Shown here is a 99-nucleotide RNA sequence from Apostasia shenzhenica, a member of the family "Small nucleolar RNA snR60/Z15/Z230/Z193/J17". A reference for the family is Tycowski et al. (2004), "Guide RNAs with 5' caps and novel box C/D snoRNA-like domains for modification of snRNAs in metazoa", Curr Biol. It scores 59 bits against the family's covariance model.
RNA sequence: GCUGGUUGCGUGAUGAUUUGUGCAUAGUUCAAAUGAUAAUCUCGUUGAGGGGUUAUUGAUUAAACUGAAAAUGUCUUUCGCUCCUGUCUGAUGACUUUG
Numbered sequence: 001g002c003u004g005g006u007u008g009c010g011u012g013a014u015g016a017u018u019u020g021u022g023c024a025u026a027g028u029u030c031a032a033a034u035g036a037u038a039a040u041c042u043c044g045u046u047g048a049g050g051g052g053u054u055a056u057u058g059a060u061u062a063a064a065c066u067g068a069a070a071a072u073g074u075c076u077u078u079c080g081c082u083c084c085u086g087u088c089u090g091a092u093g094a095c096u097u098u099g
Stems, first nucleotide, its partner, number of pairs: 004096005

Gene Ontology terms of the family: RNA processing and nucleolus. The family's RNA type in Rfam is C/D-box small nucleolar RNA. Clan: SNORD77 clan.